Rfam assigns this 127-nucleotide sequence from Microcaecilia unicolor to the family "Small nucleolar RNA SNORA17". Lineage of the source: Eukaryota > Opisthokonta > Eumetazoa > Dipnotetrapodomorpha > Microcaecilia. Pairs were carried over by alignment from the consensus structure, which was predicted with RNAalifold. snoRNA ACA 17 belongs to the H/ACA family of snoRNAs and is predicted to guide pseudouridylation of the 28S rRNA at positions U4659 and U4598. It shares the same host gene together with ACA43. NB This family has a high threshold value to exclude a large number of closely related sequences that do not appear to have conserved H and ACA boxes, and may be pseudogenes. By type it is an H/ACA-box small nucleolar RNA.
[Rfam]
RNA sequence: UCUGCCCCUAGAGGCGUUACAGACUCGGCUGCAGUGCCGUGCUUGUGUCAUUAGGUGGCAGAGAGAAAUAGGCUAUGUCUACGCUCUGAACUCUAUGAGCACUCAGAAUGAUUAAUAGCCUGACAAU
Numbered sequence: 001u002c003u004g005c006c007c008c009u010a011g012a013g014g015c016g017u018u019a020c021a022g023a024c025u026c027g028g029c030u031g032c033a034g035u036g037c038c039g040u041g042c043u044u045g046u047g048u049c050a051u052u053a054g055g056u057g058g059c060a061g062a063g064a065g066a067a068a069u070a071g072g073c074u075a076u077g078u079c080u081a082c083g084c085u086c087u088g089a090a091c092u093c094u095a096u097g098a099g100c101a102c103u104c105a106g107a108a109u110g111a112u113u114a115a116u117a118g119c120c121u122g123a124c125a126a127u
Base pairs, nucleotide, nucleotide: 002061003060004059005058006057007055008054009053010052011051013049014048015047019046020045021044022043024041026039027038028037029036069122070121071120072119073118074117075116076115082110083109085107086106087105088104091099092098093097

The family has 53 seed sequences and 5,784 matches in Rfam 15.1.
It scores 110 bits against the family's covariance model.